[Rfam]
RNA sequence: CGGGGGUGAGGUAGUCGGUUGUAUUGUUGGGGGGCCGGGAUGGGAGCCCCAAGCGCCGAGGUAACGAUACAGCCGACUACUUUCCCCCG
Numbered sequence: 001c002g003g004g005g006g007u008g009a010g011g012u013a014g015u016c017g018g019u020u021g022u023a024u025u026g027u028u029g030g031g032g033g034g035c036c037g038g039g040a041u042g043g044g045a046g047c048c049c050c051a052a053g054c055g056c057c058g059a060g061g062u063a064a065c066g067a068u069a070c071a072g073c074c075g076a077c078u079a080c081u082u083u084c085c086c087c088c089g
Stems, first nucleotide, its partner, number of pairs: 001089006008083020032049004
Rfam assigns this 89-nucleotide sequence from Crypturellus undulatus to the family "let-7 microRNA precursor family". A search with the family's covariance model found it, with a score of 61 bits. On this family, see Rougvie, Nat Rev Genet 2001: "Control of developmental timing in animals". The family has 64 seed sequences and 8,694 matches in Rfam 15.1. This family represents the microRNAs (miRNA) let-7 and mir-98. let-7 was identified from a study of developmental timing in C. elegans, and was later shown to be part of a much larger class of non-coding RNAs termed miRNAs. The family is grouped with related families in Rfam's "let-7 microRNA precursor clan". NCBI's taxonomy places the organism under Eukaryota, Teleostomi, Sarcopterygii, Dinosauria, Crypturellus.